[Rfam]
Shown here is a 130-nucleotide sequence from Neogobius melanostomus, a member of the family "Small nucleolar RNA SNORA14".

Nucleotides: 130
Stems, first nucleotide, its partner, number of pairs: 003057004009049002018043005024037001026035001063128001068124006081110004086105002089102001093098001
Number, partner (000 for none) and nucleotide at each position: 001000c002000u003057g004056c005055a006054u007000c008000c009049u010048u011000g012000a013000a014000a015000a016000c017000c018043c019042c020041c021040a022039g023000u024037g025000a026035c027000u028000u029000c030000c031000u032000a033000c034000u035026g036000c037024c038000u039022c040021u041020g042019g043018g044000a045000c046000a047000a048010g049009a050000a051000a052000g053000g054006g055005u056004g057003c058000u059000a060000g061000a062000a063128a064000a065000a066000c067000a068124c069123u070122u071121a072120g073119g074000a075000u076000u077000c078000c079000a080000a081110a082109g083108c084107u085000u086105g087104g088000a089102g090000g091000c092000g093098u094000g095000a096000c097000a098093a099000u100000u101000g102089c103000u104087c105086u106000c107084g108083g109082c110081u111000a112000u113000u114000u115000c116000a117000c118000c119073c120072c121071u122070a123069a124068g125000a126000c127000a128063u129000a130000a
From the family's description: ACA14 is a member of the H/ACA class of snoRNA that guide the sites of modification of uridines to pseudouridines. Its family is annotated with nucleolus and RNA processing in the Gene Ontology.